This 193-nucleotide sequence from Mytilus coruscus belongs to the Rfam family "U2 spliceosomal RNA". The organism belongs to Mytilus, within Eukaryota.
[Rfam]
RNA sequence: AUCGCUUCUCGGCCUUUUGGCUAAGAUCAAAGUGUAGUAUCUGUUCUUAUCAGCUUAAUAUCUGAUACGUACCCCAUGUGGGUACUUCGAUAUUAAACUGAUUUUUGCAACAAGGUGAGAUGUUAGGUGCUUGCACCGCUCUUGCCACGAGUUGGCCUGGUAUUGCAGUACCUCCAGGAUCGGCUCACUCCCC
Numbered sequence: 001a002u003c004g005c006u007u008c009u010c011g012g013c014c015u016u017u018u019g020g021c022u023a024a025g026a027u028c029a030a031a032g033u034g035u036a037g038u039a040u041c042u043g044u045u046c047u048u049a050u051c052a053g054c055u056u057a058a059u060a061u062c063u064g065a066u067a068c069g070u071a072c073c074c075c076a077u078g079u080g081g082g083u084a085c086u087u088c089g090a091u092a093u094u095a096a097a098c099u100g101a102u103u104u105u106u107g108c109a110a111c112a113a114g115g116u117g118a119g120a121u122g123u124u125a126g127g128u129g130c131u132u133g134c135a136c137c138g139c140u141c142u143u144g145c146c147a148c149g150a151g152u153u154g155g156c157c158u159g160g161u162a163u164u165g166c167a168g169u170a171c172c173u174c175c176a177g178g179a180u181c182g183g184c185u186c187a188c189u190c191c192c193c
Base pairs, nucleotide, nucleotide: 007026008025009024011022012021013020014019048067049066050065051064052063053062069085070084071083072082073081074080114146115145116144117143118142119141120140126137127136128135129134149186150185151184152183153182154181156178157177158176159175160174
Dot-bracket structure: ......(((.((((....)))).))).....................((((((........)))))).((((((.....))))))............................(((((((.....((((....))))..)))))))..((((((.(((((.............)))))..)))))).......

The match comes from Rfam's covariance-model search (183 bits).